[Rfam]
Nucleotides: 074
Stems, first nucleotide, its partner, number of pairs: 001073007010025004027043005050066005
Number, partner (000 for none) and nucleotide at each position: 001073g002072g003071g004070c005069a006068u007067g008000u009000a010025g011024c012023u013022c014000a015000g016000u017000g018000g019000a020000u021000a022013g023012a024011g025010c026000a027043u028042u029041a030040g031039a032000u033000u034000c035000c036000g037000g038000u039031u040030c041029u042028a043027a044000g045000u046000u047000g048000g049000c050066g051065g052064g053063g054062g055000u056000u057000c058000g059000a060000g061000u062054c063053c064052c065051u066050c067007c068006a069005u070004g071003c072002u073001c074000g
Shown here is a 74-nucleotide RNA from Aliterella atlantica, a member of the family "tRNA". A search with the family's covariance model found it, with a score of 60 bits. Taxonomically the source falls in Aliterella atlantica (Bacteria, Cyanobacteriota, Cyanophyceae, Chroococcidiopsidales). It is annotated as a transfer RNA.